[Rfam]
RNA sequence: UUGAAUAGUCAUCUCCGAGCCGGUGCUCCUAAGGGCUGUCGCCUAUGGAACACCGGCCUGGGUUUCGUACCCAUGGGGUAGGUCGGGAAACGGGCCUGCCUCCCUUUGCUCGGAAAGGAGAUUCCCCAUGGCUUCU
Numbered sequence: 001u002u003g004a005a006u007a008g009u010c011a012u013c014u015c016c017g018a019g020c021c022g023g024u025g026c027u028c029c030u031a032a033g034g035g036c037u038g039u040c041g042c043c044u045a046u047g048g049a050a051c052a053c054c055g056g057c058c059u060g061g062g063u064u065u066c067g068u069a070c071c072c073a074u075g076g077g078g079u080a081g082g083u084c085g086g087g088a089a090a091c092g093g094g095c096c097u098g099c100c101u102c103c104c105u106u107u108g109c110u111c112g113g114a115a116a117g118g119a120g121a122u123u124c125c126c127c128a129u130g131g132c133u134u135c136u
Stems, first nucleotide, its partner, number of pairs: 004129001011122006019057007027049003033044004059073005076101009086091001102113002

The family of this 136-nucleotide RNA from Neomoorella thermoacetica is "Molybdenum/Tungsten riboswitch aptamer (Moco RNA motif)". A reference for the family is Regulski et al. (2008), "in molybdenum cofactor and tungsten cofactor metabolism", Mol Microbiol. Pairs were carried over by alignment from the consensus structure, which is taken from published work.